[Rfam]
RNA sequence: AAGGUUCCGGUUCACGUCCAUAACCCCAGGAUUGGGUGGGCGACCCGGCGGCC
Numbered sequence: 001a002a003g004g005u006u007c008c009g010g011u012u013c014a015c016g017u018c019c020a021u022a023a024c025c026c027c028a029g030g031a032u033u034g035g036g037u038g039g040g041c042g043a044c045c046c047g048g049c050g051g052c053c
Base pairs, nucleotide, nucleotide: 003053004052005051007048008047009046010045015042016041017040018039019038020037021036
RNA: L31-Actinobacteria ribosomal protein leader